A member of the RNA family "Vault RNA" from Ardeotis kori, 94 nucleotides long. From the family's description: This family of RNAs are found as part of the enigmatic vault ribonucleoprotein complex. The complex consists of a major vault protein (MVP), two minor vault proteins (VPARP and TEP1), and several small untranslated RNA molecules. It has been suggested that the vault complex is involved in drug resistance. For this family Rfam cites "Evolution of Vault RNAs" (Stadler et al., Mol Biol Evol, 2009). By type it is a non-coding RNA gene. NCBI's taxonomy places the organism under Eukaryota, Vertebrata, Teleostomi, Sarcopterygii, Ardeotis. Rfam 15.1 lists 2,873 matches to the family in 431 species.
[Rfam]
Nucleotides: 094
Stems, first nucleotide, its partner, number of pairs: 002089006013079004018075001020073002027069004
Number, partner (000 for none) and nucleotide at each position: 001000g002089g003088g004087c005086c006085g007084g008000c009000u010000a011000u012000a013079g014078c015077c016076c017000a018075g019000c020073g021072g022000u023000u024000c025000c026000u027069u028068c029067g030066g031000u032000g033000u034000u035000a036000g037000a038000a039000g040000u041000g042000u043000u044000u045000g046000u047000a048000u049000c050000u051000u052000g053000c054000c055000c056000c057000g058000u059000c060000a061000g062000g063000g064000g065000u066030u067029c068028g069027a070000u071000g072021c073020c074000a075018c076016g077015g078014g079013c080000a081000c082000c083000u084007c085006u086005g087004g088003c089002u090000c091000a092000c093000u094000u